The family of this 104-nucleotide sequence from Albibacterium bauzanense is "SAM riboswitch aptamer (S box leader)".

[Rfam]
RNA sequence: GAUUUAUAAAGAAGUGGCGAGAGACUGGCUCGAUGAACCACUGGCAACCAUCCGAAAAGAAAAGGUGCCAAUUCCUGUCCCAAAUUAAUGGGAGCAUAUAAAUU
Numbered sequence: 001g002a003u004u005u006a007u008a009a010a011g012a013a014g015u016g017g018c019g020a021g022a023g024a025c026u027g028g029c030u031c032g033a034u035g036a037a038c039c040a041c042u043g044g045c046a047a048c049c050a051u052c053c054g055a056a057a058a059g060a061a062a063a064g065g066u067g068c069c070a071a072u073u074c075c076u077g078u079c080c081c082a083a084a085u086u087a088a089u090g091g092g093a094g095c096a097u098a099u100a101a102a103u104u
Base pairs, nucleotide, nucleotide: 001104002103003102004101005100006099007098008097013042014041015040016039017038021031022030023029025077027075028074043069044068045067046066048065049064051060052059073096078093079092080091081090082089